[Rfam]
The record is a 381-nucleotide part of an RNA from Thermoplasma acidophilum, which matches "Archaeal large subunit ribosomal RNA" in Rfam.

RNA sequence: GAAAGUAGCAGAGAAGAACCGUGAGAAUCGGUUCCGCCGAAAGGGCUAGGGUUCCUUGGCAAUGUUCGUCAGCCGAGGGUUAGUCGAUCCUAAGGCCAUACCUAACAGGAUAUGGUCGAAGGGGAAGCCGGUUAAUAUUCCGGCACACUGAACGUUUUGCCCUGUAUGAGAAGGUUCAGGGUAGGGGCGGUACGGGUGCCAACGUAUUUAUGCUCAUAAGCGGAUGGAGAGUCGUAAUGACGAGAAGUUCGCGAAAGAGCGUAUGUUCCCGUUUGGGAAUCGCCUCGAUCCCCGGAUCCCAUGAAAAUCAUGCAGGGGUCAGGUUCAGUAUCGUACCAAGAACCGACACUGGUGCCCCUAGGUGAGAAGCCUAAGGCGUUU
Numbered sequence: 001g002a003a004a005g006u007a008g009c010a011g012a013g014a015a016g017a018a019c020c021g022u023g024a025g026a027a028u029c030g031g032u033u034c035c036g037c038c039g040a041a042a043g044g045g046c047u048a049g050g051g052u053u054c055c056u057u058g059g060c061a062a063u064g065u066u067c068g069u070c071a072g073c074c075g076a077g078g079g080u081u082a083g084u085c086g087a088u089c090c091u092a093a094g095g096c097c098a099u100a101c102c103u104a105a106c107a108g109g110a111u112a113u114g115g116u117c118g119a120a121g122g123g124g125a126a127g128c129c130g131g132u133u134a135a136u137a138u139u140c141c142g143g144c145a146c147a148c149u150g151a152a153c154g155u156u157u158u159g160c161c162c163u164g165u166a167u168g169a170g171a172a173g174g175u176u177c178a179g180g181g182u183a184g185g186g187g188c189g190g191u192a193c194g195g196g197u198g199c200c201a202a203c204g205u206a207u208u209u210a211u212g213c214u215c216a217u218a219a220g221c222g223g224a225u226g227g228a229g230a231g232u233c234g235u236a237a238u239g240a241c242g243a244g245a246a247g248u249u250c251g252c253g254a255a256a257g258a259g260c261g262u263a264u265g266u267u268c269c270c271g272u273u274u275g276g277g278a279a280u281c282g283c284c285u286c287g288a289u290c291c292c293c294g295g296a297u298c299c300c301a302u303g304a305a306a307a308u309c310a311u312g313c314a315g316g317g318g319u320c321a322g323g324u325u326c327a328g329u330a331u332c333g334u335a336c337c338a339a340g341a342a343c344c345g346a347c348a349c350u351g352g353u354g355c356c357c358c359u360a361g362g363u364g365a366g367a368a369g370c371c372u373a374a375g376g377c378g379u380u381u
Stems, first nucleotide, its partner, number of pairs: 016034006035378004043357004049337002054078006063071002085333003089123002094117006101109002127144005147329007167310003173298005179292003184286005189208006212260004221251005231241003270275001343352002359373004
About this RNA
NCBI's taxonomy places the organism under Archaea, Methanobacteriati, Thermoplasmata, Thermoplasmataceae, Thermoplasma.